[Rfam]
Notes: Rfam assigns this 203-nucleotide sequence from Rattus norvegicus to the family "Small nucleolar RNA SNORA73 family". The family's consensus secondary structure is taken from published work. U17 (SNORA73A and SNORA73B) also known as E1 belongs to the H/ACA class of small nucleolar RNAs (snoRNAs). Vertebrate U17 is intron-encoded and ranges in length from 200-230 nucleotides, longer than most snoRNAs. It is one of the most abundant snoRNAs in human cells and is essential for the cleavage of pre-rRNA within the 5' external transcribed spacer (ETS). This cleavage leads to the formation of 18S rRNA. Regions of the U17 RNA are complementary to rRNA and act as guides for RNA/RNA interactions, although these regions do not seem to be well conserved between organisms. A search with the family's covariance model found it, with a score of 194 bits. The family's RNA type in Rfam is H/ACA-box small nucleolar RNA.
RNA sequence: CCAACGUGGAUAACCCGGGAGGUCACUCUCCCCGGGCUCUGUCCUAGUGGCGUCAGGGAGCAGAGGCAUUGCCCAGUGAUGUACAGUCCCUUUCCACAACGUUGGAGAUGAAGCUGGGCUUCGUGCUCGCACCUGCAUAUUCCUACAACUUCUCAGAGUCCUGUGGACGAUGACUGAGGAGGCAAACCAUGCAGGAAACAGUC
Numbered sequence: 001c002c003a004a005c006g007u008g009g010a011u012a013a014c015c016c017g018g019g020a021g022g023u024c025a026c027u028c029u030c031c032c033c034g035g036g037c038u039c040u041g042u043c044c045u046a047g048u049g050g051c052g053u054c055a056g057g058g059a060g061c062a063g064a065g066g067c068a069u070u071g072c073c074c075a076g077u078g079a080u081g082u083a084c085a086g087u088c089c090c091u092u093u094c095c096a097c098a099a100c101g102u103u104g105g106a107g108a109u110g111a112a113g114c115u116g117g118g119c120u121u122c123g124u125g126c127u128c129g130c131a132c133c134u135g136c137a138u139a140u141u142c143c144u145a146c147a148a149c150u151u152c153u154c155a156g157a158g159u160c161c162u163g164u165g166g167a168c169g170a171u172g173a174c175u176g177a178g179g180a181g182g183c184a185a186a187c188c189a190u191g192c193a194g195g196a197a198a199c200a201g202u203c
Base pairs, nucleotide, nucleotide: 001105002104003103004102005101006100007099008044009043010042011041012040014036015035016034018029019028020027021026047097048096049095050094056090057089058088059087060084062082064080065077132195133194134193135192136191137190138189149181150180151179152178153177154176158168159167160166161165
Dot-bracket structure: ((((((((((((.(((.((((....))))....)))...)))))..((((.....(((((.(.((...........)..).).)..))))...)))).)))))))..........................(((((((..........((((((...((((...)))).......)))))).......)))))))........